[Rfam]
RNA sequence: AACCACGCAUUGAACACAAAGCGAAUUAUUCUUUCGCCUUUUACUAAAGAAUACCGUGUGUUUGAUGUAAAUAGUGGUAUAUAUUUAUUUUUGGAGGAUUUCUUUUAAACAAGGGAU
Numbered sequence: 001a002a003c004c005a006c007g008c009a010u011u012g013a014a015c016a017c018a019a020a021g022c023g024a025a026u027u028a029u030u031c032u033u034u035c036g037c038c039u040u041u042u043a044c045u046a047a048a049g050a051a052u053a054c055c056g057u058g059u060g061u062u063u064g065a066u067g068u069a070a071a072u073a074g075u076g077g078u079a080u081a082u083a084u085u086u087a088u089u090u091u092u093g094g095a096g097g098a099u100u101u102c103u104u105u106u107a108a109a110c111a112a113g114g115g116a117u
Base pairs, nucleotide, nucleotide: 003077004076005075006074008067009066010065011064012063013062014061015060016059017058018057027053028052029051030050031049032048033047034046098117099116100115101114102113
This 117-nucleotide sequence from Cuscuta campestris belongs to the Rfam family "U5 spliceosomal RNA". Taxonomically the source falls in Cuscuta sect. Cleistogrammica (Eukaryota, Streptophytina, eudicotyledons, Solanales). Rfam classes the family as a spliceosomal small nuclear RNA.